[Rfam]
ffh sRNA: a 52-nucleotide sequence from Ferrovibrio terrae. The base pairs follow the family's consensus structure, which is taken from published work. By type it is a small RNA. It scores 40 bits against the family's covariance model. A reference for the family is Meyer et al. (2009), "Identification of candidate structured RNAs in the marine organism 'Candidatus Pelagibacter ubique'", BMC Genomics.
RNA sequence: CGGUCCGAGGACCGCCGUCCGUCCGCGAGUGUCGCGCACGGGCGUCGUUUUG
Numbered sequence: 001c002g003g004u005c006c007g008a009g010g011a012c013c014g015c016c017g018u019c020c021g022u023c024c025g026c027g028a029g030u031g032u033c034g035c036g037c038a039c040g041g042g043c044g045u046c047g048u049u050u051u052g
Stems, first nucleotide, its partner, number of pairs: 016044007025035004